About this RNA: The record is a 62-nucleotide sequence from Diabrotica balteata, which matches "mir-3047 microRNA precursor family" in Rfam.
[Rfam]
RNA sequence: UUGUUGUUUUGAAUGUUGUUGAAAUGUUAUUUAACAUUUCAACAACAUUCAAAACAACAAAC
Dot-bracket structure: (((((((((((((((((.((((((............)))))).)))))))))))))))))..
NCBI's taxonomy places the organism under Eukaryota, Protostomia, Panarthropoda, Polyphaga, Diabrotica.
The base pairs follow the family's consensus structure, which was predicted with RNAalifold.
The match comes from Rfam's covariance-model search (56 bits).